Shown here is a 65-nucleotide RNA from Synechococcus sp. JA-2-3B'a(2-13), a member of the family "Cyano-1 RNA". Pairs were carried over by alignment from the consensus structure, which is taken from published work. Rfam's curators put it in the seed alignment. It is annotated as a small RNA.
RNA sequence: UGAGGAGUGAAGAGAAGAAGCCUCUGGGGUCGAAACACGGACAGACGCCCAGGGGUUUUUUCAUG
Numbered sequence: 001u002g003a004g005g006a007g008u009g010a011a012g013a014g015a016a017g018a019a020g021c022c023u024c025u026g027g028g029g030u031c032g033a034a035a036c037a038c039g040g041a042c043a044g045a046c047g048c049c050c051a052g053g054g055g056u057u058u059u060u061u062c063a064u065g
Base pairs, nucleotide, nucleotide: 015061016060017059018058019057020056021055022054026050027049028048029046030045031044